[Rfam]
RNA sequence: UCGUCAGUGGAAGAAGUGAUUGGACUAUGGGCUUGUCGAAGCUUAGGCCCAGGAAAGUCGCCGGGCCACCUAUCCGCAGAGAUGCGGCCUCGGUAACGAGAGAGUCUUGCGCUUAGAGAGAGACAUUAUCGGCUGAGACGCGUGUGUGGAGCCUUCACGGUCUCUCUAGCGAAGAUAUUCAUGGCCAAUUUAACAGUAAUUCACUUGGGUCCUUUAGAGGGAUUUACCAGAACGGGGCUUACUUCCACUGACG
Numbered sequence: 001u002c003g004u005c006a007g008u009g010g011a012a013g014a015a016g017u018g019a020u021u022g023g024a025c026u027a028u029g030g031g032c033u034u035g036u037c038g039a040a041g042c043u044u045a046g047g048c049c050c051a052g053g054a055a056a057g058u059c060g061c062c063g064g065g066c067c068a069c070c071u072a073u074c075c076g077c078a079g080a081g082a083u084g085c086g087g088c089c090u091c092g093g094u095a096a097c098g099a100g101a102g103a104g105u106c107u108u109g110c111g112c113u114u115a116g117a118g119a120g121a122g123a124c125a126u127u128a129u130c131g132g133c134u135g136a137g138a139c140g141c142g143u144g145u146g147u148g149g150a151g152c153c154u155u156c157a158c159g160g161u162c163u164c165u166c167u168a169g170c171g172a173a174g175a176u177a178u179u180c181a182u183g184g185c186c187a188a189u190u191u192a193a194c195a196g197u198a199a200u201u202c203a204c205u206u207g208g209g210u211c212c213u214u215u216a217g218a219g220g221g222a223u224u225u226a227c228c229a230g231a232a233c234g235g236g237g238c239u240u241a242c243u244u245c246c247a248c249u250g251a252c253g
Stems, first nucleotide, its partner, number of pairs: 002253010014206006029044006055240003059237001061235002075086004089100004104176003111170003115167003121163004131153003140147002208224006
Rfam assigns this 253-nucleotide sequence from Brassica carinata to the family "RNase MRP". The source organism's lineage runs through Eukaryota, Streptophyta, Mesangiospermae, malvids and Brassica. The base pairs follow the family's consensus structure, which is taken from published work. On this family, see Rosenblad et al., Nucleic Acids Res 2006: "Inventory and analysis of the protein subunits of the ribonucleases P and MRP provides further evidence of homology between the yeast and human enzymes". It is annotated as a ribozyme. It scores 82 bits against the family's covariance model.